[Rfam]
RNA sequence: CGACGUCGGUUCCUCUUCCUGUGUGCAGCGUAUCAGGAGGAUUUUACGACGUCGCAGAUCAACGGGUCUGUUUCACCCUCAGAGCUGCAGUCUGAACCCAGACACACUCACAGCGCUGGGGUUUUUGCGGGACCCGACACAC
Numbered sequence: 001c002g003a004c005g006u007c008g009g010u011u012c013c014u015c016u017u018c019c020u021g022u023g024u025g026c027a028g029c030g031u032a033u034c035a036g037g038a039g040g041a042u043u044u045u046a047c048g049a050c051g052u053c054g055c056a057g058a059u060c061a062a063c064g065g066g067u068c069u070g071u072u073u074c075a076c077c078c079u080c081a082g083a084g085c086u087g088c089a090g091u092c093u094g095a096a097c098c099c100a101g102a103c104a105c106a107c108u109c110a111c112a113g114c115g116c117u118g119g120g121g122u123u124u125u126u127g128c129g130g131g132a133c134c135c136g137a138c139a140c141a142c
Base pairs, nucleotide, nucleotide: 001054002053003052004051005050006049007048008047014041015040016039017038018037020035021034065134066133067132068131069130077121078120079119080118081117082116084114085113086112
Dot-bracket structure: ((((((((.....(((((.((............)).))))).....))))))))..........(((((.......((((((.(((.........................))).))))))........)))))........